[Rfam]
RNA: 6S-Flavo RNA
RNA sequence: ACUCAACACGAAUUUUUUAUAAUGGGUGAGUCAUUACUGCUAAAGCGCGCCAUUAUGGAUACUUGAUCAGUAUGUUAGCCUAAAUCUUGUUUUAAUAAGAGUUU
Number, nucleotide and partner (000 for none) at each position: 001a000002c000003u000004c000005a000006a000007c000008a000009c000010g000011a000012a000013u000014u000015u000016u000017u000018u000019a000020u000021a000022a000023u082024g081025g080026g079027u078028g000029a000030g000031u000032c000033a000034u000035u072036a071037c070038u069039g000040c000041u000042a000043a064044a063045g062046c000047g000048c000049g000050c058051c057052a056053u000054u000055a000056u052057g051058g050059a000060u000061a000062c045063u044064u043065g000066a000067u000068c000069a038070g037071u036072a035073u000074g000075u000076u000077a000078g027079c026080c025081u024082a023083a000084a000085u000086c000087u000088u000089g000090u000091u000092u000093u000094a000095a000096u000097a000098a000099g000100a000101g000102u000103u000104u000